[Rfam]
Rfam assigns this 213-nucleotide RNA from Cyprinus carpio to the family "Small nucleolar RNA U3". Taxonomically the source falls in Cyprinus carpio (Eukaryota, Eumetazoa, Vertebrata, Ostariophysi). Small nucleolar RNAs (snoRNAs) are involved in the processing and modification of rRNA in the nucleolus. There are two main classes of snoRNAs: the box C/D class, and the box H/ACA class. U3 snoRNA is a member of the box C/D class. A search with the family's covariance model found it, with a score of 125 bits. Rfam links the family to the GO terms RNA processing and nucleolus. A reference for the family is Zwieb (1997), "The uRNA database", Nucleic Acids Res. Its Rfam clan is "U3 clan".
RNA sequence: AAGACUAUAUUUUUCAGGGAUCAUUUCUAUAGUUCUUUACUUUGGAAAUGUGUUUCGAAAGUGUUUGUCUCCCAACCCAUGAUGAUGAGCUAUAAUACUCCUUUCUGAGAGUGAAUUGAGGACAGAACUGUGGCUUUGUUCACAAGCUCUGUCGUUGAUGAGCGUUCAUAUUGUUUUUGGCAAUGUUGAAGAAAGGAGUAUGAUCUGAGUGGU
Dot-bracket structure: (((.....(((....((((.....))))..)))......))).......(.(...(......).))..........((((..............((((((((((((..(.(.........((((((.((((((......))))).).)))))).........).)..(.(((((.....)))))..)..)))))))))))).......)))).